A member of the RNA family "mir-454 microRNA precursor family" from Denticeps clupeoides, 103 nucleotides long. Lineage of the source: Eukaryota > Opisthokonta > Deuterostomia > Clupeocephala > Denticeps. The family's consensus secondary structure was predicted with RNAalifold. The family has 20 seed sequences and 696 matches in Rfam 15.1. It scores 82 bits against the family's covariance model.

Nucleotides: 103
Stems, first nucleotide, its partner, number of pairs: 020089010030076009041066004045061001
Number, partner (000 for none) and nucleotide at each position: 001000a002000u003000g004000a005000a006000g007000c008000u009000u010000c011000c012000u013000u014000g015000c016000a017000g018000a019000c020089g021088a022087g023086a024085c025084c026083c027082u028081a029080u030076c031075a032074a033073u034072a035071u036070u037069g038068c039000c040000u041066c042065u043064g044063c045061u046000u047000u048000u049000u050000g051000a052000g053000u054000c055000u056000g057000a058000g059000u060000g061045g062000a063044g064043u065042a066041g067000u068038g069037c070036a071035a072034u073033a074032u075031u076030g077000c078000u079000u080029a081028u082027a083026g084025g085024g086023u087022c088021u089020u090000g091000a092000c093000u094000c095000a096000g097000g098000g099000g100000g101000a102000c103000g